[Rfam]
RNA sequence: AGACAUCGAAGAGGUUGCGACCACGAUGAGUAAAUUAGUCGAGUUCCUGUGUGAACCAUGACGCUAAUCGAAAGGCACGGUCGCCGAAGCGCUUUAGUAGCACAGACUAAAGUAAGCUGGGACAUCGUUUAAUAAGCGAUGGACUGUCACGAUUCACAUCGUGGUGCGCUUUCGACAAUU
Numbered sequence: 001a002g003a004c005a006u007c008g009a010a011g012a013g014g015u016u017g018c019g020a021c022c023a024c025g026a027u028g029a030g031u032a033a034a035u036u037a038g039u040c041g042a043g044u045u046c047c048u049g050u051g052u053g054a055a056c057c058a059u060g061a062c063g064c065u066a067a068u069c070g071a072a073a074g075g076c077a078c079g080g081u082c083g084c085c086g087a088a089g090c091g092c093u094u095u096a097g098u099a100g101c102a103c104a105g106a107c108u109a110a111a112g113u114a115a116g117c118u119g120g121g122a123c124a125u126c127g128u129u130u131a132a133u134a135a136g137c138g139a140u141g142g143a144c145u146g147u148c149a150c151g152a153u154u155c156a157c158a159u160c161g162u163g164g165u166g167c168g169c170u171u172u173c174g175a176c177a178a179u180u
Stems, first nucleotide, its partner, number of pairs: 006175004010170002017084006025076001034068006088118003091113008119145002123141007147164007
Lysine riboswitch aptamer: a 180-nucleotide RNA sequence from Fructobacillus durionis.
It scores 106 bits against the family's covariance model.
The organism belongs to Fructobacillus, within Bacteria.